[Rfam]
RNA sequence: AUAUUAAUUGAGGGGCAACUCUCAACUGACACACAAGGUGAGGUUUCGGCCAAAUAUUGUGUGCAGAAAGCCAGAGACAGGUAGCACGAGAACCUCUGGCGGCGGUUCGGCAGUAGUGCUAAAAUGACGAACCAA
Numbered sequence: 001a002u003a004u005u006a007a008u009u010g011a012g013g014g015g016c017a018a019c020u021c022u023c024a025a026c027u028g029a030c031a032c033a034c035a036a037g038g039u040g041a042g043g044u045u046u047c048g049g050c051c052a053a054a055u056a057u058u059g060u061g062u063g064c065a066g067a068a069a070g071c072c073a074g075a076g077a078c079a080g081g082u083a084g085c086a087c088g089a090g091a092a093c094c095u096c097u098g099g100c101g102g103c104g105g106u107u108c109g110g111c112a113g114u115a116g117u118g119c120u121a122a123a124a125u126g127a128c129g130a131a132c133c134a135a
Stems, first nucleotide, its partner, number of pairs: 008025007026066003030063002033060004038055001042051003070100007084119004104133006111126002